[Rfam]
RNA sequence: AGGUCACUUCCAAAAGGGCUUGUAGGACUAAAACCAGGAGCUCUUAAAUGCUGUGACCAAAGACUGACAUUCUCCAUAAGAUGUGAUAGCCACUCAAUUGUGCUGUUUUCCUGAGUAGAGACAGGU
Numbered sequence: 001a002g003g004u005c006a007c008u009u010c011c012a013a014a015a016g017g018g019c020u021u022g023u024a025g026g027a028c029u030a031a032a033a034c035c036a037g038g039a040g041c042u043c044u045u046a047a048a049u050g051c052u053g054u055g056a057c058c059a060a061a062g063a064c065u066g067a068c069a070u071u072c073u074c075c076a077u078a079a080g081a082u083g084u085g086a087u088a089g090c091c092a093c094u095c096a097a098u099u100g101u102g103c104u105g106u107u108u109u110c111c112u113g114a115g116u117a118g119a120g121a122c123a124g125g126u
Stems, first nucleotide, its partner, number of pairs: 002058006014045008023037001026035001071119003075115001078112001080110002086106004091102003

A member of the RNA family "Small nucleolar RNA SNORA25" from Bos grunniens, 126 nucleotides long.
ACA25 is a member of the H/ACA class of snoRNA that guide the sites of modification of uridines to pseudouridines.
The base pairs follow the family's consensus structure, which was predicted with RNAfold.
Rfam classes the family as an H/ACA-box small nucleolar RNA.
NCBI's taxonomy places the organism under Eukaryota, Dipnotetrapodomorpha, Theria, Ruminantia, Bos.
Rfam links the family to the GO terms nucleolus and RNA processing.
It scores 94 bits against the family's covariance model.